[Rfam]
RNA: tRNA
Organism: Streptomyces sp. sk2.1
RNA sequence: GCGGCCGUGUCGGAAUGGCAGACGAGCGGCGCUUAGAACGCCGUGGGAGAAAUCCCGUGUGGGUUCGAAUCCCACCGGCCGCA
Number, nucleotide and partner (000 for none) at each position: 001g082002c081003g080004g079005c078006c077007g076008u000009g000010u025011c024012g023013g000014a000015a000016u000017g000018g000019c000020a000021g000022a000023c012024g011025a010026g000027c043028g042029g041030c040031g039032c000033u000034u000035a000036g000037a000038a000039c031040g030041c029042c028043g027044u000045g000046g000047g000048a000049g000050a000051a000052a000053u000054c000055c000056c000057g000058u000059g075060u074061g073062g072063g071064u000065u000066c000067g000068a000069a000070u000071c063072c062073c061074a060075c059076c007077g006078g005079c004080c003081g002082c001083a000